A member of the RNA family "Plasmodium RNA of unkown function RUF1" from Plasmodium malariae, 325 nucleotides long. On this family, see Chakrabarti et al., RNA 2007: "Structural RNAs of known and unknown function identified in malaria parasites by comparative genomics and RNA analysis". A search with the family's covariance model found it, with a score of 108 bits. Pairs were carried over by alignment from the consensus structure, which was predicted with WAR. Taxonomically the source falls in Plasmodium (Eukaryota, Sar, Apicomplexa, Haemosporida).
RNA sequence: UGGUUAAACUACACUCAACGAUUUAAUUUCUUUUCUAUAUUAUUUCGUUAUUUCGUUUUUAACCUAAAUGAAGAGUCAUUCUUUGCUAUUCUUGUAGGGAAAUUUCUUUUUGUUUGUUUUUUUUUUUUUUUUUAAAGAAAAAAGCAUAAGGAAUGAAAUGCCUAUACGAGAUGGCUUGUUUGAUUCACCUCUCUAUAUUCCCGGUAUUUUCAACGCCUUUUGGGUAGCUUCUCGUUAAGUAAUGUUGAUUUUGCUGUAACAAAACGGAGGGGAACAUUAAAAAUAUAAAUUAGCACAAGCGGAAAAGUGCGUGCAGGUAAAUAAG
Numbered sequence: 001u002g003g004u005u006a007a008a009c010u011a012c013a014c015u016c017a018a019c020g021a022u023u024u025a026a027u028u029u030c031u032u033u034u035c036u037a038u039a040u041u042a043u044u045u046c047g048u049u050a051u052u053u054c055g056u057u058u059u060u061a062a063c064c065u066a067a068a069u070g071a072a073g074a075g076u077c078a079u080u081c082u083u084u085g086c087u088a089u090u091c092u093u094g095u096a097g098g099g100a101a102a103u104u105u106c107u108u109u110u111u112g113u114u115u116g117u118u119u120u121u122u123u124u125u126u127u128u129u130u131u132u133u134a135a136a137g138a139a140a141a142a143a144g145c146a147u148a149a150g151g152a153a154u155g156a157a158a159u160g161c162c163u164a165u166a167c168g169a170g171a172u173g174g175c176u177u178g179u180u181u182g183a184u185u186c187a188c189c190u191c192u193c194u195a196u197a198u199u200c201c202c203g204g205u206a207u208u209u210u211c212a213a214c215g216c217c218u219u220u221u222g223g224g225u226a227g228c229u230u231c232u233c234g235u236u237a238a239g240u241a242a243u244g245u246u247g248a249u250u251u252u253g254c255u256g257u258a259a260c261a262a263a264a265c266g267g268a269g270g271g272g273a274a275c276a277u278u279a280a281a282a283a284u285a286u287a288a289a290u291u292a293g294c295a296c297a298a299g300c301g302g303a304a305a306a307g308u309g310c311g312u313g314c315a316g317g318u319a320a321a322u323a324a325g
Stems, first nucleotide, its partner, number of pairs: 002064007017049005025041003029037001079289001080287001082285001085175006176283002179280002188272007203255004210248005215225004227243001229241001231239002256265002